[Rfam]
RNA sequence: UGGUGUUUUUCUUCAAUGACACGUUUUCUCCCGGAUUGCUGGCAGUAGUGAAUGCAACCGGGAAUUUCGUGUCAGCCAAGAAGGACACCA
Numbered sequence: 001u002g003g004u005g006u007u008u009u010u011c012u013u014c015a016a017u018g019a020c021a022c023g024u025u026u027u028c029u030c031c032c033g034g035a036u037u038g039c040u041g042g043c044a045g046u047a048g049u050g051a052a053u054g055c056a057a058c059c060g061g062g063a064a065u066u067u068c069g070u071g072u073c074a075g076c077c078a079a080g081a082a083g084g085a086c087a088c089c090a
Stems, first nucleotide, its partner, number of pairs: 001090011017074007029063006036057004042053001
RNA: mir-731 microRNA precursor family